This 287-nucleotide sequence from Botrytis cinerea belongs to the Rfam family "A. fumigatus sRNA Afu_309".
It is one of the family's seed sequences.
Rfam 15.1 lists 663 matches to the family in 646 species.
The source organism's lineage runs through Eukaryota, Opisthokonta, Leotiomycetes, Helotiales and Botrytis.
The family's RNA type in Rfam is small RNA.
[Rfam]
RNA sequence: AUCAAAACACCAGAUUUGUGUCCAGCGUCCCUUUGCCAGAACUGCUUGUCAGCGAUGGUUUAAGGUUGUAUGCUGAGGCAGUUCGAUCGUCUAUGGAGCCAUCAACCUACCAAGGUAAUUUAUGAUGUCAAUAUCCGAUCGACAAAUCUCAGAAUGAUCGGUCCUUAUGAAACUUGAGUCGCUUCGGCUGAUUCGGUGGAUGAGUGUACUGAAGACGUCAGAUUCCAAAUCUGUUUGCCUAGGCUGUUAGCCCUUGAGGUUGCGGAAUAACCCUCUCGUCUACAUUU
Numbered sequence: 001a002u003c004a005a006a007a008c009a010c011c012a013g014a015u016u017u018g019u020g021u022c023c024a025g026c027g028u029c030c031c032u033u034u035g036c037c038a039g040a041a042c043u044g045c046u047u048g049u050c051a052g053c054g055a056u057g058g059u060u061u062a063a064g065g066u067u068g069u070a071u072g073c074u075g076a077g078g079c080a081g082u083u084c085g086a087u088c089g090u091c092u093a094u095g096g097a098g099c100c101a102u103c104a105a106c107c108u109a110c111c112a113a114g115g116u117a118a119u120u121u122a123u124g125a126u127g128u129c130a131a132u133a134u135c136c137g138a139u140c141g142a143c144a145a146a147u148c149u150c151a152g153a154a155u156g157a158u159c160g161g162u163c164c165u166u167a168u169g170a171a172a173c174u175u176g177a178g179u180c181g182c183u184u185c186g187g188c189u190g191a192u193u194c195g196g197u198g199g200a201u202g203a204g205u206g207u208a209c210u211g212a213a214g215a216c217g218u219c220a221g222a223u224u225c226c227a228a229a230u231c232u233g234u235u236u237g238c239c240u241a242g243g244c245u246g247u248u249a250g251c252c253c254u255u256g257a258g259g260u261u262g263c264g265g266a267a268u269a270a271c272c273c274u275c276u277c278g279u280c281u282a283c284a285u286u287u
Base pairs, nucleotide, nucleotide: 012149013148014147015146016145017144018143019142020079021078022077023075024074025073027071028070030068031065032064033063034062035061037058038056043054044053045052046051087141089139090138091137094130095129096128098126100124101123102122161209162208172197173196175195176194177193178192179191180190181188182187214280215279216278217277220274221273230266231265232264233263234262237260238259239258242252243251244250245249